The family of this 77-nucleotide RNA sequence from Falsiroseomonas bella is "terC RNA". It is annotated as a cis-regulatory element. It scores 52 bits against the family's covariance model. The base pairs follow the family's consensus structure, which is taken from published work.
RNA sequence: CCCUCGAUCCGGGCCCCUCUGGCGGACCGGCCGUGCCGACAGGCUUGGCCAGGCUCCCGCGAUGUCGGAUCGCAUCG
Numbered sequence: 001c002c003c004u005c006g007a008u009c010c011g012g013g014c015c016c017c018u019c020u021g022g023c024g025g026a027c028c029g030g031c032c033g034u035g036c037c038g039a040c041a042g043g044c045u046u047g048g049c050c051a052g053g054c055u056c057c058c059g060c061g062a063u064g065u066c067g068g069a070u071c072g073c074a075u076c077g
Base pairs, nucleotide, nucleotide: 006071007070008069009068010067011066012065022060023059024058025057

Record summary
Lineage of the source: Bacteria > Pseudomonadota > Acetobacterales > Roseomonadaceae > Falsiroseomonas.